[Rfam]
RNA sequence: ACGGUUCCGGUUCCCGCCCGAGCCUGCCGCUCCACCGGGAGCGGCAGGUCAUGACAGCGACCCGGCGACC
Numbered sequence: 001a002c003g004g005u006u007c008c009g010g011u012u013c014c015c016g017c018c019c020g021a022g023c024c025u026g027c028c029g030c031u032c033c034a035c036c037g038g039g040a041g042c043g044g045c046a047g048g049u050c051a052u053g054a055c056a057g058c059g060a061c062c063c064g065g066c067g068a069c070c
Stems, first nucleotide, its partner, number of pairs: 003070003007065004015059003019053002
Source information
Rfam assigns this 70-nucleotide sequence to the family "L31-Actinobacteria ribosomal protein leader". Pairs were carried over by alignment from the consensus structure, which is taken from published work. The family is grouped with related families in Rfam's "Ribosomal Protein L31 Leader clan". Rfam's curators put it in the seed alignment. The family's RNA type in Rfam is cis-regulatory leader.